This 253-nucleotide sequence from Mesobacillus persicus belongs to the Rfam family "BsrG". The literature on the family includes a 2012 paper in Mol Microbiol by Jahn et al., "BsrG/SR4 from Bacillus subtilis--the first temperature-dependent type I toxin-antitoxin system". The match comes from Rfam's covariance-model search (104 bits). The base pairs follow the family's consensus structure, which was predicted with WAR. Gene Ontology terms of the family: toxin activity and autolysis. The organism belongs to Mesobacillus, within Bacteria. The family's RNA type in Rfam is small RNA. Rfam describes the family as follows. bsrE, bsrG and bsrH pair through intermolecular interactions with antisense sRNAs. Rfam 15.1 lists 614 matches to the family in 343 species.
RNA sequence: GCAAUAGAAUAGGUUUUCUCAAGGGUGGUCGGCCUAUCUCCCCAGUAGAAAGGGGGUGGUGCUGAUUGACAGUGUUUGAGUCUCUGAUGUUUGCGAUUGCAUUUACUACCUUAGUCGUAGCCAUCCUGUCAUUUAACCAUAAAAAAUAAUCCACCCUUGAGUUGACGCCUCUGGUGGAUUAUUUCUUUCACUGACAGCUGACCCCUCUACGGGAACCGUCUAUUGCUGGACUGGACAUGUUGACGCAUGUUCG
Dot-bracket structure: (((((.((.......((((((((((.(((....(((.(((((.........))))))))........(((((.(......((............)).........((...........))...).)))))..................)))..))))))))..........((...............)).........))(((......))).....)).))))).....(((((((((....)))))))))